[Rfam]
A member of the RNA family "Small nucleolar RNA snR60/Z15/Z230/Z193/J17" from Sphaeramia orbicularis, 80 nucleotides long. For this family Rfam cites "A computational screen for methylation guide snoRNAs in yeast" (Lowe and Eddy, Science, 1999). The pairing is the family consensus, mapped onto this sequence. NCBI's taxonomy places the organism under Eukaryota, Eumetazoa, Chordata, Teleostomi, Sphaeramia.

RNA sequence: UGGAUGCAGUGAUGAUUGCAUAGUUCAGCAGAUAUUCUGUGACGAAGAAAAAUGUCUUUCGCUCCUAGCUGAUGCAUCUG
Numbered sequence: 001u002g003g004a005u006g007c008a009g010u011g012a013u014g015a016u017u018g019c020a021u022a023g024u025u026c027a028g029c030a031g032a033u034a035u036u037c038u039g040u041g042a043c044g045a046a047g048a049a050a051a052a053u054g055u056c057u058u059u060c061g062c063u064c065c066u067a068g069c070u071g072a073u074g075c076a077u078c079u080g
Stems, first nucleotide, its partner, number of pairs: 004077005

Its family is annotated with RNA processing and nucleolus in the Gene Ontology.